The record is a 105-nucleotide RNA, which matches "drum RNA" in Rfam. Rfam describes the family as follows. Firmicutes, Bacteroidetes (1 example), Proteobacteria (2 examples), Spirochaetes (2 examples). By type it is a small RNA. The base pairs follow the family's consensus structure, which is taken from published work.
RNA sequence: GACCGUUGAAAUUAGGGCUAUGUAAGAUAGUGCUAGUGGAGGUCUUCGUAGGGUUUUAUGUUGACCUGUUCUUACUAGGUGAAAACCGAACAAAAAACAUAAGUU
Numbered sequence: 001g002a003c004c005g006u007u008g009a010a011a012u013u014a015g016g017g018c019u020a021u022g023u024a025a026g027a028u029a030g031u032g033c034u035a036g037u038g039g040a041g042g043u044c045u046u047c048g049u050a051g052g053g054u055u056u057u058a059u060g061u062u063g064a065c066c067u068g069u070u071c072u073u074a075c076u077a078g079g080u081g082a083a084a085a086c087c088g089a090a091c092a093a094a095a096a097a098c099a100u101a102a103g104u105u
Stems, first nucleotide, its partner, number of pairs: 001044004011037005017031004023074004058100003078087003